[Rfam]
RNA: c-di-AMP riboswitch aptamer (ydaO/yuaA leader)
RNA sequence: CUUCCGACUAAGCAGAAUCAGGGACGAGGGCGGGGGACCCACCACGUCUCCCUAGUGCAACCGGGCCGCACAUCGUUGCGAUCCUUGGGGUGAAGCAGAACCGUUCCAGCCAGGAGCGCGAACGCCGGGCUACCUCUCAGCCCGAACCCGACAGCUGACCUCGCAGGCGCGUGUGGAGAGGAUUU
Dot-bracket structure: ...........((....((........))((((((....((............................................))(((.....(...........................)..((((.........))))...))).........))))))..)).................
Numbered sequence: 001c002u003u004c005c006g007a008c009u010a011a012g013c014a015g016a017a018u019c020a021g022g023g024a025c026g027a028g029g030g031c032g033g034g035g036g037a038c039c040c041a042c043c044a045c046g047u048c049u050c051c052c053u054a055g056u057g058c059a060a061c062c063g064g065g066c067c068g069c070a071c072a073u074c075g076u077u078g079c080g081a082u083c084c085u086u087g088g089g090g091u092g093a094a095g096c097a098g099a100a101c102c103g104u105u106c107c108a109g110c111c112a113g114g115a116g117c118g119c120g121a122a123c124g125c126c127g128g129g130c131u132a133c134c135u136c137u138c139a140g141c142c143c144g145a146a147c148c149c150g151a152c153a154g155c156u157g158a159c160c161u162c163g164c165a166g167g168c169g170c171g172u173g174u175g176g177a178g179a180g181g182a183u184u185u
Stems, first nucleotide, its partner, number of pairs: 012168002018029002030164006040087002088149003096124001127143004